The family of this 178-nucleotide RNA from Vibrio ostreae is "Lysine riboswitch aptamer". The literature on the family includes a 2003 paper in Nucleic Acids Res by Rodionov et al., "Regulation of lysine biosynthesis and transport genes in bacteria: yet another RNA riboswitch?". The source organism's lineage runs through Bacteria, Pseudomonadota, Vibrionales, Vibrionaceae and Vibrio. Gene Ontology term of the family: lysine biosynthetic process. A search with the family's covariance model found it, with a score of 78 bits.

RNA sequence: UUUAGCAGAAGAGGAGCACUGCCCAGGCAGAUAUUUUGUGGAGCCUCAACUCCAAAACAAAAUAUUCAGGGGGAGUAGUGCCGAGACAAAUCUUAAUUGUGGUUUUGAUUUGUCGGUUGACUGGGCUGAAUCCCUUCAACUGUCAUUGGCCCCGAGCUGAUGAAGAGCUUCUGAGGUC
Number, nucleotide and partner (000 for none) at each position: 001u000002u000003u000004a000005g000006c173007a172008g171009a170010a169011g168012a000013g000014g000015a000016g081017c080018a079019c078020u077021g076022c075023c000024c073025a000026g000027g000028c000029a000030g066031a065032u064033a063034u062035u061036u060037u059038g000039u000040g000041g000042a000043g000044c000045c000046u000047c000048a000049a000050c000051u000052c000053c000054a000055a000056a000057a000058c000059a037060a036061a035062a034063u033064a032065u031066u030067c000068a000069g000070g000071g000072g000073g024074a000075g022076u021077a020078g019079u018080g017081c016082c000083g000084a000085g114086a113087c112088a111089a110090a109091u108092c107093u000094u000095a104096a103097u000098u000099g000100u000101g000102g000103u096104u095105u000106u000107g092108a091109u090110u089111u088112g087113u086114c085115g141116g140117u139118u138119g137120a136121c000122u000123g134124g133125g132126c000127u000128g000129a000130a000131u000132c125133c124134c123135u000136u120137c119138a118139a117140c116141u115142g000143u163144c162145a161146u160147u159148g158149g157150c000151c000152c000153c000154g000155a000156g000157c149158u148159g147160a146161u145162g144163a143164a000165g000166a000167g000168c011169u010170u009171c008172u007173g006174a000175g000176g000177u000178c000